[Rfam]
RNA sequence: GGAUGAGGUAGAGGUGCAAUGCGAAUCAGUACCCACUUGGAGUUUGAUGGAACUAGGAAGAGUGGGGAAAGGUCAAUUUGCCGAAGUGAAUGUAUGUCCAUCCCAUACGUUUGCUGGGUCGUUUUUGAAUAAAAAACGAACUGCCGCUGACUGUUAGCGGAGAGCUAUCUGCCAA
Number, nucleotide and partner (000 for none) at each position: 001g000002g000003a000004u000005g000006a170007g169008g168009u167010a166011g165012a000013g000014g000015u000016g081017c080018a079019a078020u000021g000022c000023g074024a073025a000026u000027c000028a000029g000030u000031a000032c066033c065034c064035a063036c062037u061038u060039g000040g000041a000042g000043u000044u000045u000046g000047a000048u000049g000050g000051a000052a000053c000054u000055a000056g000057g000058a000059a000060g038061a037062g036063u035064g034065g033066g032067g000068a000069a000070a000071g000072g000073u024074c023075a000076a000077u000078u019079u018080g017081c016082c000083g000084a000085a115086g114087u113088g112089a111090a110091u109092g108093u107094a106095u105096g104097u000098c000099c000100a000101u000102c000103c000104c096105a095106u094107a093108c092109g091110u090111u089112u088113g087114c086115u085116g142117g141118g000119u139120c138121g137122u136123u135124u134125u133126u132127g000128a000129a000130u000131a000132a126133a125134a124135a123136a122137c121138g120139a119140a000141c117142u116143g000144c160145c159146g158147c157148u156149g155150a154151c000152u000153g000154u150155u149156a148157g147158c146159g145160g144161a000162g000163a000164g000165c011166u010167a009168u008169c007170u006171g000172c000173c000174a000175a000
The record is a 175-nucleotide RNA from Halalkalibacterium halodurans, which matches "Lysine riboswitch aptamer" in Rfam. The source organism's lineage runs through Bacteria, Bacillati, Caryophanales, Halalkalibacterium (ex Joshi et al. 2022) and Halalkalibacterium halodurans. Its family is annotated with lysine biosynthetic process in the Gene Ontology.